[Rfam]
RNA sequence: UAAAGGUGGAGGUCAGAGACCACUAUAAAAAACGAGGCGGAGCCGAAAAGCCAUACGAGUAGGAAAAAA
Numbered sequence: 001u002a003a004a005g006g007u008g009g010a011g012g013u014c015a016g017a018g019a020c021c022a023c024u025a026u027a028a029a030a031a032a033c034g035a036g037g038c039g040g041a042g043c044c045g046a047a048a049a050g051c052c053a054u055a056c057g058a059g060u061a062g063g064a065a066a067a068a069a
Base pairs, nucleotide, nucleotide: 006023007022008021009020036052037051038050043063044062
DUF805 RNA: a 69-nucleotide sequence from Tenuifilum thalassicum. A search with the family's covariance model found it, with a score of 79 bits.